[Rfam]
RNA: Glycine riboswitch aptamer
Organism: Pelosinus fermentans
RNA sequence: AUGAAGUUUGCGGGAGAGUGGCUUAAUAGCCCGCCGAAGGAGUAAAACUCUCAGGCACUCGGACCACCGAGUAGAA
Numbered sequence: 001a002u003g004a005a006g007u008u009u010g011c012g013g014g015a016g017a018g019u020g021g022c023u024u025a026a027u028a029g030c031c032c033g034c035c036g037a038a039g040g041a042g043u044a045a046a047a048c049u050c051u052c053a054g055g056c057a058c059u060c061g062g063a064c065c066a067c068c069g070a071g072u073a074g075a076a
Stems, first nucleotide, its partner, number of pairs: 007070002010067001012065002020031004033056003036052002040050003